[Rfam]
Shown here is a 205-nucleotide sequence from Papaver nudicaule, a member of the family "Burkholderia sRNA 1". The base pairs follow the family's consensus structure, which was predicted with RNAfold. Rfam's curators write: Trans-encoded, exhibits differential expression profiles dependent on growth phase and cell stimuli, such as antbiotics and serum. It is annotated as a small RNA.
RNA sequence: AUAAGUUCUACGGGGUAGCAGAAAUAAAGCGCGGGGUUAGCGUUGCCGGCACGUGAAGCACGUGCCGGCCGCGGAGUGUCUGCAUGCACGGCGGGGCCAAUCAUCGUCGGACAACACAUGCAUGCAGGCCGACUUGCAGAUAAGCAACGUUCCGUCGUCUGACCGGGGAAUGCAGUGAUCGGGCGGCGGCGGACGUUUUUUAAUC
Dot-bracket structure: (.((((.((.((.(...............).)).))....(((.(((((((((((...))))))))))).)))....(((((((((.......(.(........).).............))))))))).....((..(.....)..)).(((((((.(((.(((..............))).)))))))))).)))).).....